[Rfam]
RNA sequence: GCAAAUCCGUUGGGGUGCCCCGUCUGGGGCUGAGAGGCGCAAGCUAACCCAUCGAACCUGAUCCGGACAAUACCGGCGUAGGGAACGGAACAUGAUCUGGC
Numbered sequence: 001g002c003a004a005a006u007c008c009g010u011u012g013g014g015g016u017g018c019c020c021c022g023u024c025u026g027g028g029g030c031u032g033a034g035a036g037g038c039g040c041a042a043g044c045u046a047a048c049c050c051a052u053c054g055a056a057c058c059u060g061a062u063c064c065g066g067a068c069a070a071u072a073c074c075g076g077c078g079u080a081g082g083g084a085a086c087g088g089a090a091c092a093u094g095a096u097c098u099g100g101c
Base pairs, nucleotide, nucleotide: 006089007088008087009086010085011051012050013049014048017030018029019028020027021026037044038043057082058081059080060079063076064075065074066073

Rfam assigns this 101-nucleotide sequence from Pseudooceanicola lipolyticus to the family "TPP riboswitch aptamer (THI element)". NCBI's taxonomy places the organism under Bacteria, Pseudomonadati, Rhodobacterales, Paracoccaceae, Pseudooceanicola. It scores 77 bits against the family's covariance model. Gene Ontology term of the family: thiamine pyrophosphate binding.